[Rfam]
RNA: Small nucleolar RNA Z157/R69/R10
RNA sequence: UAUAGUGCAGUGAUGAUUGCUAUUGUGGACUAGAGUUUCUGAUCUGGUUGAUCUCAACCACUAGUUGAAGACAAACCCUUGGCUGUCUGAGCACAAUC
Numbered sequence: 001u002a003u004a005g006u007g008c009a010g011u012g013a014u015g016a017u018u019g020c021u022a023u024u025g026u027g028g029a030c031u032a033g034a035g036u037u038u039c040u041g042a043u044c045u046g047g048u049u050g051a052u053c054u055c056a057a058c059c060a061c062u063a064g065u066u067g068a069a070g071a072c073a074a075a076c077c078c079u080u081g082g083c084u085g086u087c088u089g090a091g092c093a094c095a096a097u098c
Base pairs, nucleotide, nucleotide: 002097003096005094006093007092008091036070037069038068039067043063045060046059047058048057